The record is a 244-nucleotide RNA sequence from Pseudomonas cavernae, which matches "sRNA regulator of biofilms A" in Rfam.
RNA sequence: AUCAGGGGCUCUGGAAAGGGCCUCCGGAUCGCGCUCUAACUUAGCAACCUGAGCCGAUCCGUGUUGUACAGCCCACAAGGCGGUUUGACGAGAUUGCGACUGGAACGAAGUUGUCCUGAGGGACGGGGAAGCGUUUUAGCGUAUCAGCCAGAUUGACCUGUUCAGCCCAGCGAAUCGCCCGACGGCACCCACGAGCCAACCCGCGAUUCGAGCCAAGCUCACGAAUAUGGUCAUCUAACUGUUC
Number, nucleotide and partner (000 for none) at each position: 001a000002u000003c000004a000005g024006g023007g022008g021009c020010u019011c018012u017013g000014g000015a000016a000017a012018g011019g010020g009021c008022c007023u006024c005025c000026g000027g000028a058029u057030c056031g055032c000033g000034c000035u053036c000037u051038a000039a000040c000041u047042u000043a000044g000045c000046a000047a041048c000049c000050u000051g037052a000053g035054c000055c031056g030057a029058u028059c000060c155061g154062u000063g153064u152065u151066g000067u000068a000069c000070a000071g081072c080073c079074c000075a000076c000077a000078a000079g073080g072081c071082g000083g140084u139085u000086u000087g135088a134089c133090g132091a000092g000093a000094u000095u000096g000097c000098g000099a000100c000101u000102g000103g000104a000105a000106c000107g000108a000109a000110g000111u000112u000113g000114u000115c000116c128117u127118g000119a000120g000121g000122g000123a000124c000125g000126g000127g117128g116129a000130a000131g000132c090133g089134u088135u087136u000137u000138a000139g084140c083141g000142u000143a000144u000145c000146a000147g000148c000149c000150a000151g065152a064153u063154u061155g060156a000157c000158c000159u000160g000161u000162u000163c172164a000165g000166c000167c000168c000169a000170g000171c000172g163173a000174a000175u000176c205177g204178c203179c000180c000181g200182a000183c000184g197185g196186c195187a000188c000189c000190c000191a000192c000193g000194a000195g186196c185197c184198a000199a000200c181201c000202c000203g178204c177205g176206a000207u000208u000209c000210g000211a000212g000213c000214c000215a234216a000217g232218c000219u230220c229221a000222c000223g000224a000225a000226u000227a000228u000229g220230g219231u000232c217233a000234u215235c000236u000237a000238a000239c000240u000241g000242u000243u000244c000